[Rfam]
RNA sequence: UUGAAGCUCCAUCUACAAAUGGAUAAAUUUUCGUUUUUAGUUUAGUGUAUUCGAGUUAUUGAACGUAAAGGGGCAAUGCAGGUUUCUUGUUUUAUCAAGAAAUUGGCUCUUGCUCCUUU
Numbered sequence: 001u002u003g004a005a006g007c008u009c010c011a012u013c014u015a016c017a018a019a020u021g022g023a024u025a026a027a028u029u030u031u032c033g034u035u036u037u038u039a040g041u042u043u044a045g046u047g048u049a050u051u052c053g054a055g056u057u058a059u060u061g062a063a064c065g066u067a068a069a070g071g072g073g074c075a076a077u078g079c080a081g082g083u084u085u086c087u088u089g090u091u092u093u094a095u096c097a098a099g100a101a102a103u104u105g106g107c108u109c110u111u112g113c114u115c116c117u118u119u
Stems, first nucleotide, its partner, number of pairs: 008023005067119010078108001081104002084101005
Dot-bracket structure: .......(((((......)))))...........................................((((((((((.(..((.(((((........))))).))...).))))))))))

The record is a 119-nucleotide sequence from Suaeda malacosperma, which matches "Plastid-psbA-1 3UTR RNA" in Rfam. Pairs were carried over by alignment from the consensus structure, which was predicted with LocARNA. Plastid psbA-1 is a non-coding RNA (ncRNA) present in plastids. It was identified in inverted repeat sequences in the 3 prime untranslate region (3UTR) of photosystem II quinone-binding protein (psbA). By type it is a cis-regulatory element. The sequence is in the family's curated seed alignment.